[Rfam]
RNA: Small nucleolar RNA R30/Z108
Organism: Macleaya cordata
RNA sequence: UAAGAUUGCGAUGAGGAUAACAAGCUCCCUCUUCUGAUUUAAAGUUGAGGACAAUCGCUGGCAGAAUCGAACCUAAUUAUUAAUCGCCACCACUGAGUAA
Numbered sequence: 001u002a003a004g005a006u007u008g009c010g011a012u013g014a015g016g017a018u019a020a021c022a023a024g025c026u027c028c029c030u031c032u033u034c035u036g037a038u039u040u041a042a043a044g045u046u047g048a049g050g051a052c053a054a055u056c057g058c059u060g061g062c063a064g065a066a067u068c069g070a071a072c073c074u075a076a077u078u079a080u081u082a083a084u085c086g087c088c089a090c091c092a093c094u095g096a097g098u099a100a
Base pairs, nucleotide, nucleotide: 006100007099008098009097